[Rfam]
RNA sequence: ACAACAUAUACGCCGCUUCUCGGACACCGCGUGCCCCCAAUGAGCACGCAGGAACGGGAGCCGGGGGCCCAACUGAAACCAAGGAGUUUCGCCCCUGGGGUAAAUGGCCGUGAGGGACGACAGCUUUACUUGUCGCGGAGCGCGCCAGGGCUGAUUCUCAAGCCCCACCCGUCAGCUAACCCGGUAGGCGAUUGAGAAGGAUAUG
Numbered sequence: 001a002c003a004a005c006a007u008a009u010a011c012g013c014c015g016c017u018u019c020u021c022g023g024a025c026a027c028c029g030c031g032u033g034c035c036c037c038c039a040a041u042g043a044g045c046a047c048g049c050a051g052g053a054a055c056g057g058g059a060g061c062c063g064g065g066g067g068c069c070c071a072a073c074u075g076a077a078a079c080c081a082a083g084g085a086g087u088u089u090c091g092c093c094c095c096u097g098g099g100g101u102a103a104a105u106g107g108c109c110g111u112g113a114g115g116g117a118c119g120a121c122a123g124c125u126u127u128a129c130u131u132g133u134c135g136c137g138g139a140g141c142g143c144g145c146c147a148g149g150g151c152u153g154a155u156u157c158u159c160a161a162g163c164c165c166c167a168c169c170c171g172u173c174a175g176c177u178a179a180c181c182c183g184g185u186a187g188g189c190g191a192u193u194g195a196g197a198a199g200g201a202u203a204u205g
Stems, first nucleotide, its partner, number of pairs: 011190004018059005060185006070097002098170003106146003149164004
Dot-bracket structure: ..........((((...(((((................................)))))((((((....((........................))(((.....(((...................................)))..((((........))))...))).........)))))).))))...............
Rfam assigns this 205-nucleotide RNA from Corynebacterium glaucum to the family "c-di-AMP riboswitch aptamer (ydaO/yuaA leader)". It scores 53 bits against the family's covariance model. NCBI's taxonomy places the organism under Bacteria, Actinomycetota, Actinomycetes, Corynebacteriaceae, Corynebacterium.